[Rfam]
RNA sequence: GUAAGAUGAAUCUACGGUUAUUUGCAGUUAGUUAAUCACCGGGAUUGCAUCUUUCGA
Numbered sequence: 001g002u003a004a005g006a007u008g009a010a011u012c013u014a015c016g017g018u019u020a021u022u023u024g025c026a027g028u029u030a031g032u033u034a035a036u037c038a039c040c041g042g043g044a045u046u047g048c049a050u051c052u053u054u055c056g057a
Base pairs, nucleotide, nucleotide: 001055003053004052005051006050007049008048010046011044012043013042016039020036021035022034024032025031
Dot-bracket structure: (.((((((.((((..(...(((.((.....)).)))..)..))).).)))))).)..